Shown here is a 198-nucleotide sequence from Cyclopterus lumpus, a member of the family "Small nucleolar RNA SNORA74". The family has 24 seed sequences and 1,348 matches in Rfam 15.1. U19 belongs to the H/ACA class of snoRNAs. snoRNAs bind a number of proteins (including dyskerin, Gar1p and Nop10p in the case of the H/ACA class) to form snoRNP complexes. The literature on the family includes a 1997 paper in Genes Dev by Ganot et al., "The family of box ACA small nucleolar RNAs is defined by an evolutionarily conserved secondary structure and ubiquitous sequence elements essential for RNA accumulation". The family's RNA type in Rfam is H/ACA-box small nucleolar RNA. Lineage of the source: Eukaryota > Opisthokonta > Teleostomi > Clupeocephala > Cyclopterus. It scores 82 bits against the family's covariance model. The base pairs follow the family's consensus structure, which was predicted with PFOLD.
RNA sequence: ACCAGUGCUCAGUCAGCUGACCAGGUGAUGUGUCUGGCUCAGUGUUACAGCGCUGGUAGAGUAUGUGGCUGUACUGGUUCUCAGCUCUGCAGGUUCUGUUUUAGAGUCUGCUGCAUCUGAGCCGUACAGUGCAUGGCCCAACGAGAGUGGCCUGUCCUGAUCCAACAGCAGGACAGGCCUAGUGCAGGGCCGCACAUU
Numbered sequence: 001a002c003c004a005g006u007g008c009u010c011a012g013u014c015a016g017c018u019g020a021c022c023a024g025g026u027g028a029u030g031u032g033u034c035u036g037g038c039u040c041a042g043u044g045u046u047a048c049a050g051c052g053c054u055g056g057u058a059g060a061g062u063a064u065g066u067g068g069c070u071g072u073a074c075u076g077g078u079u080c081u082c083a084g085c086u087c088u089g090c091a092g093g094u095u096c097u098g099u100u101u102u103a104g105a106g107u108c109u110g111c112u113g114c115a116u117c118u119g120a121g122c123c124g125u126a127c128a129g130u131g132c133a134u135g136g137c138c139c140a141a142c143g144a145g146a147g148u149g150g151c152c153u154g155u156c157c158u159g160a161u162c163c164a165a166c167a168g169c170a171g172g173a174c175a176g177g178c179c180u181a182g183u184g185c186a187g188g189g190c191c192g193c194a195c196a197u198u
Stems, first nucleotide, its partner, number of pairs: 001057009012048002016043005022036005068130007080121004084116001087113001089111001091109007134192006149179003153175007